[Rfam]
RNA sequence: GGAUGUGAGGGCAAUCUGGCUGCAAUAUCUUUCACCCCAUUGAUUUCCAGGGUUGAUUUGGUUGAUCUGGCUGGCUAGGCAGAUGUCUCCUUCUUCCCUCACCACUCCAUGUGUAUCCCUACCAAAGCUGUGUACUCGGUCAAGGAGGACAGCCAUCCCUGAUAGAGAAGGACUGGUCUUCAGUCAAGGGUAUAUCAGUAGCUAUGUCCCCUUCUAGAACCUCCAAAUAAGCUCUCAAGGUCAAUUUGUAGGAGAACAUAGUGUAGUCAAGCUUCCAAGACUCCAGACACAUCCAAAUGAGGUGCUGCAUGUGGCAGUUUGCCUUUCUAA
Numbered sequence: 001g002g003a004u005g006u007g008a009g010g011g012c013a014a015u016c017u018g019g020c021u022g023c024a025a026u027a028u029c030u031u032u033c034a035c036c037c038c039a040u041u042g043a044u045u046u047c048c049a050g051g052g053u054u055g056a057u058u059u060g061g062u063u064g065a066u067c068u069g070g071c072u073g074g075c076u077a078g079g080c081a082g083a084u085g086u087c088u089c090c091u092u093c094u095u096c097c098c099u100c101a102c103c104a105c106u107c108c109a110u111g112u113g114u115a116u117c118c119c120u121a122c123c124a125a126a127g128c129u130g131u132g133u134a135c136u137c138g139g140u141c142a143a144g145g146a147g148g149a150c151a152g153c154c155a156u157c158c159c160u161g162a163u164a165g166a167g168a169a170g171g172a173c174u175g176g177u178c179u180u181c182a183g184u185c186a187a188g189g190g191u192a193u194a195u196c197a198g199u200a201g202c203u204a205u206g207u208c209c210c211c212u213u214c215u216a217g218a219a220c221c222u223c224c225a226a227a228u229a230a231g232c233u234c235u236c237a238a239g240g241u242c243a244a245u246u247u248g249u250a251g252g253a254g255a256a257c258a259u260a261g262u263g264u265a266g267u268c269a270a271g272c273u274u275c276c277a278a279g280a281c282u283c284c285a286g287a288c289a290c291a292u293c294c295a296a297a298u299g300a301g302g303u304g305c306u307g308c309a310u311g312u313g314g315c316a317g318u319u320u321g322c323c324u325u326u327c328u329a330a
Base pairs, nucleotide, nucleotide: 001108002107003106005102006101007100008099009098010097011096014092018090019089025086026085027084028083029082030081032079033078035074036073037070038069039068042067043066044065045064047061048060116171117170119167120166122139123138125136127135140162141161142160147158148157149156201272202271203270207265209263211261212260221254222253223252224251227249228248229247230246231245297328299325300324301323302322303321304318305317306316307315308314
Shown here is a 330-nucleotide sequence from Cercocebus atys, a member of the family "7SK RNA". Rfam describes the family as follows. 7SK was discovered as an abundant small nuclear RNA in the mid-70s but a possible function has only recently been suggested. The organism belongs to Cercocebus, within Eukaryota. For this family Rfam cites "Transcription: surprising role for an elusive small nuclear RNA" (Blencowe, Curr Biol, 2002). The family's consensus secondary structure is taken from published work. A search with the family's covariance model found it, with a score of 287 bits. The family has 45 seed sequences and 49,373 matches in Rfam 15.1.